[Rfam]
RNA sequence: CCCGCCCGGGUCCGUGGUUGCGCCGGCAUGUCCCCUCCUUGCGGAGGAGCGAGCCGGUUAGCCGAUGCCAGCCGCAGGCGAAACGGUCCACGUAAGGCGACUUCUCGUCGUCGAUCACGGUGCGGCUUAGAAGUAAGUCCUGCCCCGCCGGCGACCCAGAUGGUUGCCGUCCCGGGAGAAGGGCAGUAGUGGCGAACAUCGCUGCGAAACCCUCAGCAGGCGGAUGUGGGGUCGAAGACCAGGUCGGCCGGGCGGG
Number, nucleotide and partner (000 for none) at each position: 001c256002c255003c254004g253005c252006c251007c250008g249009g248010g000011u000012c247013c246014g245015u241016g240017g239018u238019u237020g000021c000022g000023c000024c000025g000026g000027c000028a000029u000030g000031u000032c000033c000034c000035c000036u000037c000038c000039u000040u000041g000042c000043g000044g000045a000046g000047g000048a000049g000050c000051g000052a000053g000054c000055c000056g000057g000058u000059u000060a000061g000062c000063c000064g000065a227066u226067g225068c078069c000070a127071g126072c125073c124074g123075c122076a121077g000078g068079c000080g000081a000082a000083a000084c000085g000086g000087u120088c119089c000090a000091c000092g115093u000094a000095a000096g111097g000098c000099g108100a000101c000102u000103u000104c000105u000106c000107g000108u099109c000110g000111u096112c000113g000114a000115u092116c000117a000118c234119g088120g087121u076122g075123c074124g073125g072126c071127u070128u000129a000130g000131a000132a000133g000134u000135a000136a000137g000138u000139c220140c219141u218142g217143c216144c176145c175146c174147g173148c000149c000150g000151g000152c000153g000154a000155c000156c000157c000158a000159g000160a000161u000162g000163g000164u000165u000166g000167c000168c000169g000170u000171c000172c000173c147174g146175g145176g144177a000178g000179a000180a213181g212182g211183g210184c000185a000186g000187u000188a000189g205190u204191g000192g000193c201194g200195a199196a000197c000198a000199u195200c194201g193202c000203u000204g190205c189206g000207a000208a000209a000210c183211c182212c181213u180214c000215a000216g143217c142218a141219g140220g139221c000222g000223g000224a000225u067226g066227u065228g000229g000230g000231g000232u000233c000234g118235a000236a000237g019238a018239c017240c016241a015242g000243g000244u000245c014246g013247g012248c009249c008250g007251g006252g005253c004254g003255g002256g001
RNA: raiA RNA